[Rfam]
RNA sequence: AGAGGUUGCAGGUUUGAAGCCAUAGCAGAUGCGCUUAUGGUGCAGCCUGUCAGAUUCCAGUGAAAUCUGUGAAUUCUGCU
Numbered sequence: 001a002g003a004g005g006u007u008g009c010a011g012g013u014u015u016g017a018a019g020c021c022a023u024a025g026c027a028g029a030u031g032c033g034c035u036u037a038u039g040g041u042g043c044a045g046c047c048u049g050u051c052a053g054a055u056u057c058c059a060g061u062g063a064a065a066u067c068u069g070u071g072a073a074u075u076c077u078g079c080u
Stems, first nucleotide, its partner, number of pairs: 016047001019046002024080006031043003051069006

Rfam assigns this 80-nucleotide RNA sequence from Crocodylus porosus to the family "Mammalian CPEB3 ribozyme".
The family has 14 seed sequences and 5,706 matches in Rfam 15.1.
The organism belongs to Crocodylus, within Eukaryota.
From the family's description: The mammalian CPEB3 ribozyme is a self cleaving RNA located in the second intron of the CPEB3 gene which belongs to a family of genes regulating messenger RNA polyadenylation.
A search with the family's covariance model found it, with a score of 43 bits.
The family's consensus secondary structure is taken from published work.